[Rfam]
The family of this 89-nucleotide sequence from Laticauda laticaudata is "mir-1684 microRNA precursor family".

RNA sequence: GAGUUUUAAAGAAGGCCAUUGCUUUCUCUGCCAGAUACUCCUUAUAGAGGAGUAUCUGGCAGAGAAAACAGUGGCCUUCUUUAAAACUC
Numbered sequence: 001g002a003g004u005u006u007u008a009a010a011g012a013a014g015g016c017c018a019u020u021g022c023u024u025u026c027u028c029u030g031c032c033a034g035a036u037a038c039u040c041c042u043u044a045u046a047g048a049g050g051a052g053u054a055u056c057u058g059g060c061a062g063a064g065a066a067a068a069c070a071g072u073g074g075c076c077u078u079c080u081u082u083a084a085a086a087c088u089c
Base pairs, nucleotide, nucleotide: 002088003087006084007083009081010080011079012078013077014076015075016074017073018072019071020070021069023067024066025065026064027063028062029061030060031059032058034056035055037053038052039051040050041049042048